[Rfam]
Nucleotides: 237
Stems, first nucleotide, its partner, number of pairs: 007103002015098004026086005037075003048070006106139003110135003141153003169196009201234004212230005
Number, partner (000 for none) and nucleotide at each position: 001000a002000u003000g004000a005000a006000u007103g008102c009000a010000u011000u012000g013000a014000a015098u016097a017096g018095g019000a020000a021000g022000a023000g024000u025000a026086g027085g028084a029083u030082c031000c032000g033000a034000a035000c036000c037075u038074u039073u040000c041000a042000g043000a044000g045000a046000g047000a048070g049069a050068a051067a052066u053065c054000a055000u056000u057000a058000g059000c060000u061000g062000a063000g064000a065053g066052a067051u068050u069049u070048c071000u072000u073039a074038a075037g076000a077000u078000g079000u080000a081000c082030g083029a084028u085027u086026c087000g088000a089000a090000u091000g092000u093000c094000g095018c096017c097016u098015a099000g100000g101000a102008g103007c104000a105000g106139c107138u108137a109000u110135c111134c112133u113000g114000a115000a116000a117000a118000a119000u120000c121000g122000u123000u124000u125000g126000a127000u128000u129000c130000a131000u132000a133112a134111g135110g136000c137108u138107a139106g140000c141153c142152g143151g144000c145000a146000g147000c148000u149000g150000a151143c152142c153141g154000u155000u156000a157000u158000c159000a160000g161000a162000u163000u164000g165000a166000g167000u168000g169196u170195g171194u172193a173192g174191u175190a176189c177188g178000u179000u180000a181000g182000a183000u184000u185000u186000u187000u188177u189176g190175u191174a192173c193172u194171g195170c196169a197000a198000a199000c200000a201234a202233a203232g204231g205000u206000g207000g208000u209000a210000c211000c212230g213229c214228g215227a216226g217000u218000g219000a220000a221000c222000u223000u224000u225000c226216u227215u228214c229213g230212u231204c232203c233202u234201u235000u236000g237000g

A member of the RNA family "T-box leader" from Halalkalibacter okhensis, 237 nucleotides long. The organism belongs to Halalkalibacter, within Bacteria. From the family's description: Uncharged tRNA acts as the effector for transcription antitermination of genes in the T-box leader family. T-boxes are found upstream of many aminoacyl-tRNA synthetase genes and some amino acid biosynthetic genes usually in Gram-positive bacteria. The anticodon of a specific tRNA base pairs to a specifier sequence within the T-box motif, and the NCCA acceptor tail of the tRNA base pairs to a conserved bulge in the T-box antiterminator hairpin. By type it is a cis-regulatory leader.